[Rfam]
RNA sequence: GGAGGUUGGGAAGGCUCCCCGACAGCGCGUUGCGCCCUCGGGGAUUUUGUUU
Numbered sequence: 001g002g003a004g005g006u007u008g009g010g011a012a013g014g015c016u017c018c019c020c021g022a023c024a025g026c027g028c029g030u031u032g033c034g035c036c037c038u039c040g041g042g043g044a045u046u047u048u049g050u051u052u
Base pairs, nucleotide, nucleotide: 016044017043018042019041020040021039022038025035026034027033028032
The family of this 52-nucleotide RNA from Asticcacaulis sp. AC466 is "ffh sRNA". The base pairs follow the family's consensus structure, which is taken from published work. The match comes from Rfam's covariance-model search (41 bits). The organism belongs to Asticcacaulis, within Bacteria. On this family, see Meyer et al., BMC Genomics 2009: "Identification of candidate structured RNAs in the marine organism 'Candidatus Pelagibacter ubique'".